[Rfam]
RNA sequence: UGAUGGGGUCGUGACUGGCGUGCAGAUGGGACACCAUCGGGGAACGACACCAUCUCGUGAAUUGGCCGCUCGCCUGGGUCGAAAUU
Numbered sequence: 001u002g003a004u005g006g007g008g009u010c011g012u013g014a015c016u017g018g019c020g021u022g023c024a025g026a027u028g029g030g031a032c033a034c035c036a037u038c039g040g041g042g043a044a045c046g047a048c049a050c051c052a053u054c055u056c057g058u059g060a061a062u063u064g065g066c067c068g069c070u071c072g073c074c075u076g077g078g079u080c081g082a083a084a085u086u
Base pairs, nucleotide, nucleotide: 003053004052005051006050008048009047010046011045012044015041016040017074018073019072020071026037027036028035029034063081064080065079066078067077

Notes
The record is an 86-nucleotide RNA sequence from Leucobacter massiliensis, which matches "ZMP/ZTP riboswitch aptamer (pfl RNA motif)" in Rfam. It scores 61 bits against the family's covariance model.